[Rfam]
RNA sequence: ACAGGGUCACGGCAAACUUUUCCGAAAGGGAAGGACGCAAAGCUAUGGGUCUACCGCUUCCGCCGGAAGCUACGAUCGCCAAGCCGCCCUA
Numbered sequence: 001a002c003a004g005g006g007u008c009a010c011g012g013c014a015a016a017c018u019u020u021u022c023c024g025a026a027a028g029g030g031a032a033g034g035a036c037g038c039a040a041a042g043c044u045a046u047g048g049g050u051c052u053a054c055c056g057c058u059u060c061c062g063c064c065g066g067a068a069g070c071u072a073c074g075a076u077c078g079c080c081a082a083g084c085c086g087c088c089c090u091a
Base pairs, nucleotide, nucleotide: 012038013037017033018032019031020030022029023028042084043083044082046081047080048079049076050075051074056070057069058068059067060066061065
This 91-nucleotide sequence from Paenibacillus antri belongs to the Rfam family "c-di-GMP-I riboswitch aptamer". The organism belongs to Paenibacillus, within Bacteria.